RNA sequence: GACUGUAAGUGAUGAUUUGUUUAAAACAAUUGGGAAUCUCUCUGAAUAAGAGUGAAAGAUGAUUUUUAUCUGAUGCAGUG
Numbered sequence: 001g002a003c004u005g006u007a008a009g010u011g012a013u014g015a016u017u018u019g020u021u022u023a024a025a026a027c028a029a030u031u032g033g034g035a036a037u038c039u040c041u042c043u044g045a046a047u048a049a050g051a052g053u054g055a056a057a058g059a060u061g062a063u064u065u066u067u068a069u070c071u072g073a074u075g076c077a078g079u080g
Stems, first nucleotide, its partner, number of pairs: 002079006
Source information
Small nucleolar RNA SNORD79: an 80-nucleotide RNA sequence from Betta splendens. The family's consensus secondary structure was predicted with PFOLD. The family is grouped with related families in Rfam's "SNORD74 clan". About the family: snoRNA U79 or Z22 is found in intron 7 of the gas5 gene in humans and is also present in mice. Rfam classes the family as a C/D-box small nucleolar RNA. A reference for the family is Galardi et al. (2002), "Purified box C/D snoRNPs are able to reproduce site-specific 2'-O-methylation of target RNA in vitro", Mol Cell Biol.